[Rfam]
RNA sequence: UAACCUAUAUCGUGAGAUAUAGCUGAACAUUCAGAAGUCAGCUCAAGUCAUAGUACUGUUUGAACCUACCGAAAGGAUAGGUAAGGGAAGGAC
Dot-bracket structure: ((..(((((((....))))))).))............(......).(((......((..........(((.........)))..))....)))
Numbered sequence: 001u002a003a004c005c006u007a008u009a010u011c012g013u014g015a016g017a018u019a020u021a022g023c024u025g026a027a028c029a030u031u032c033a034g035a036a037g038u039c040a041g042c043u044c045a046a047g048u049c050a051u052a053g054u055a056c057u058g059u060u061u062g063a064a065c066c067u068a069c070c071g072a073a074a075g076g077a078u079a080g081g082u083a084a085g086g087g088a089a090g091g092a093c
Stems, first nucleotide, its partner, number of pairs: 001025002005022007038045001047093003056086002068082003
Group II catalytic intron D1-D4-1: a 93-nucleotide RNA sequence from Thermoanaerobacter brockii. It is one of the family's seed sequences. Rfam's curators write: Group II introns are found in rRNA, tRNA and mRNA of organelles in fungi, plants and protists, and also in mRNA in bacteria.